[Rfam]
RNA: c-di-GMP-I-GGC riboswitch aptamer
Organism: Desulfonema ishimotonii
RNA sequence: UGAGAAAAAGCCAAACCCGUCGUGAGAUGGGGACGGAAAGCUACGGGUCUUACAGUGAAAGAUAGCCGGGCCGCCUUAA
Numbered sequence: 001u002g003a004g005a006a007a008a009a010g011c012c013a014a015a016c017c018c019g020u021c022g023u024g025a026g027a028u029g030g031g032g033a034c035g036g037a038a039a040g041c042u043a044c045g046g047g048u049c050u051u052a053c054a055g056u057g058a059a060a061g062a063u064a065g066c067c068g069g070g071c072c073g074c075c076u077u078a079a
Stems, first nucleotide, its partner, number of pairs: 001079001003076002011036002016031006034065001040071003044068003047063003
Dot-bracket structure: (.((......((...((((((....))))))..[))...(((.((((((...........))).]))))))...))..)